[Rfam]
RNA sequence: GCGCAGCAGUUCUUCAGCGGCAUCGCUUUACGUCCCUUUUAAGAAGCUAAAGCUGCGCAGUUGAAGAACUGUUGGCC
Dot-bracket structure: ...((....((((((...(((...((((((.................)))))).)).)....))))))....))...